[Rfam]
RNA sequence: CUCGCGGCAACGCCGAGUCCGCCGUCAAGGCGGAGCCGGGGAACCACCAUGCGCCGGACCUCGACACGGUCCCGCGCAGGGGUGAGUCGGCCUGCCCGCAGGCCGUAGGGCGACUUCCACGUCCGAACCCGUCAGCUAACCCGGUAGGCGGCUUGGAAGAAGGAGU
Numbered sequence: 001c002u003c004g005c006g007g008c009a010a011c012g013c014c015g016a017g018u019c020c021g022c023c024g025u026c027a028a029g030g031c032g033g034a035g036c037c038g039g040g041g042a043a044c045c046a047c048c049a050u051g052c053g054c055c056g057g058a059c060c061u062c063g064a065c066a067c068g069g070u071c072c073c074g075c076g077c078a079g080g081g082g083u084g085a086g087u088c089g090g091c092c093u094g095c096c097c098g099c100a101g102g103c104c105g106u107a108g109g110g111c112g113a114c115u116u117c118c119a120c121g122u123c124c125g126a127a128c129c130c131g132u133c134a135g136c137u138a139a140c141c142c143g144g145u146a147g148g149c150g151g152c153u154u155g156g157a158a159g160a161a162g163g164a165g166u
Base pairs, nucleotide, nucleotide: 011150012149013148014147018034019033020032021031022030023029035145036144037143038142039141040140045079080130081129082128088105089104090103091102108124109123110122111121
c-di-AMP riboswitch aptamer (ydaO/yuaA leader): a 166-nucleotide RNA from Actinomadura darangshiensis. Taxonomically the source falls in Actinomadura (Bacteria, Bacillati, Actinomycetota, Actinomycetes). It scores 71 bits against the family's covariance model.